Description:
The record is a 107-nucleotide RNA sequence from Capsicum annuum, which matches "Plant small nucleolar RNA R71" in Rfam. Lineage of the source: Eukaryota > Streptophytina > eudicotyledons > Gunneridae > Capsicum. The family's consensus secondary structure was predicted with PFOLD.
[Rfam]
RNA sequence: UGAUGGUGAUGAGGAUAAUUUUUGAGCAUGCCUUUAAAUCUCUCCCAAGCUUGGUAGAGGUUUUUUUCAUCUUUUUGUUUGAAACUCAAGAUCUCACUCCUUAAUCG
Numbered sequence: 001u002g003a004u005g006g007u008g009a010u011g012a013g014g015a016u017a018a019u020u021u022u023u024g025a026g027c028a029u030g031c032c033u034u035u036a037a038a039u040c041u042c043u044c045c046c047a048a049g050c051u052u053g054g055u056a057g058a059g060g061u062u063u064u065u066u067u068c069a070u071c072u073u074u075u076u077g078u079u080u081g082a083a084a085c086u087c088a089a090g091a092u093c094u095c096a097c098u099c100c101u102u103a104a105u106c107g
Stems, first nucleotide, its partner, number of pairs: 001107001003105002005102002057074002060071001